[Rfam]
RNA sequence: UAAGUAGAAGCCGAAAAACUUAUAGAGUAAGCA
Numbered sequence: 001u002a003a004g005u006a007g008a009a010g011c012c013g014a015a016a017a018a019c020u021u022a023u024a025g026a027g028u029a030a031g032c033a
Base pairs, nucleotide, nucleotide: 002021003020004019005018010032011031